[Rfam]
RNA sequence: AAAUAUAAUAGGCAAACCUAAAGAAAUUUAGGGACGCAAAGCUAUAGGGGCUAAGGUGUAUACAAGUACACUAUGUCAGCCAGUUGCCAAA
Dot-bracket structure: ...........((...((((((....))))))...))..((((...(((((....((((((....))))))...)))..))))))......